[Rfam]
RNA: mir-15 microRNA precursor family
RNA sequence: CUCGGCUGUGCCCUAGCAGCACGUCAAAACUGGAGUCACAAAGUUCAAUCCUCCAGUAUUGCCUUGCUGCUUGAGUGAGGCAGGA
Numbered sequence: 001c002u003c004g005g006c007u008g009u010g011c012c013c014u015a016g017c018a019g020c021a022c023g024u025c026a027a028a029a030c031u032g033g034a035g036u037c038a039c040a041a042a043g044u045u046c047a048a049u050c051c052u053c054c055a056g057u058a059u060u061g062c063c064u065u066g067c068u069g070c071u072u073g074a075g076u077g078a079g080g081c082a083g084g085a
Base pairs, nucleotide, nucleotide: 002084003083005081006080013073015071016070017069018068019067020066021065023063026060027059029057030056031055032054033053034052035051